[Rfam]
RNA sequence: GAAAUCCCGUCUGGUAAGACUCUAGCCAAGUCACCAGUAGCGAGUCUUGGACUCGAUGGAGUAAUUCAUAGAGUUAAGCGUAGACAGGUAGGUAGUAGGCCUGAAUGUGAUUGAGCCCCGUAAUGGGCAAACGGGAAGGUUGACGGUUUCGAAACUCCGGAAAACUAUAUCUUGGUACGCGAUAUGGCGAGUGUAUUGAGACUUCCUCGGGGUCUAAGAGCC
Numbered sequence: 001g002a003a004a005u006c007c008c009g010u011c012u013g014g015u016a017a018g019a020c021u022c023u024a025g026c027c028a029a030g031u032c033a034c035c036a037g038u039a040g041c042g043a044g045u046c047u048u049g050g051a052c053u054c055g056a057u058g059g060a061g062u063a064a065u066u067c068a069u070a071g072a073g074u075u076a077a078g079c080g081u082a083g084a085c086a087g088g089u090a091g092g093u094a095g096u097a098g099g100c101c102u103g104a105a106u107g108u109g110a111u112u113g114a115g116c117c118c119c120g121u122a123a124u125g126g127g128c129a130a131a132c133g134g135g136a137a138g139g140u141u142g143a144c145g146g147u148u149u150c151g152a153a154a155c156u157c158c159g160g161a162a163a164a165c166u167a168u169a170u171c172u173u174g175g176u177a178c179g180c181g182a183u184a185u186g187g188c189g190a191g192u193g194u195a196u197u198g199a200g201a202c203u204u205c206c207u208c209g210g211g212g213u214c215u216a217a218g219a220g221c222c
Stems, first nucleotide, its partner, number of pairs: 012036004019031003023190001025188002041087001044085004048080002050075005056069005112216001113214001115213006133207006139165003144159003170201011
Dot-bracket structure: ...........((((...(((.[.[[..))).))))....(..(((((((((((.(((((....))))).)))))...)).)))).)........................((.((((((............(((((((((..(((..........)))...)))....(((((((((((......]].])))))))))))))))))))))))).)......
Shown here is a 222-nucleotide RNA sequence from Desulfofarcimen acetoxidans, a member of the family "Group II catalytic intron D1-D4-6". The base pairs follow the family's consensus structure. Rfam links the family to the GO term Group II intron splicing. A reference for the family is Bonen and Vogel (2001), "The ins and outs of group II introns", Trends Genet. The source organism's lineage runs through Bacteria, Bacillota, Peptococcaceae, Desulfofarcimen and Desulfofarcimen acetoxidans.